Rfam assigns this 75-nucleotide RNA sequence from Streptomyces sp. Ag109_G2-6 to the family "ASpks TB sRNA". The base pairs follow the family's consensus structure, which is taken from published work. The organism belongs to Streptomyces, within Bacteria.

RNA sequence: CUUGAUGGAGCCCAGCCACAGCGGUUCGCCGUCCGCCCGGUCCUGUCCGUAGGUGGCGAGGAGGGCCUGGGCUUC
Numbered sequence: 001c002u003u004g005a006u007g008g009a010g011c012c013c014a015g016c017c018a019c020a021g022c023g024g025u026u027c028g029c030c031g032u033c034c035g036c037c038c039g040g041u042c043c044u045g046u047c048c049g050u051a052g053g054u055g056g057c058g059a060g061g062a063g064g065g066c067c068u069g070g071g072c073u074u075c
Base pairs, nucleotide, nucleotide: 014026015025016024017023032070033069038065043060044059047056048055049054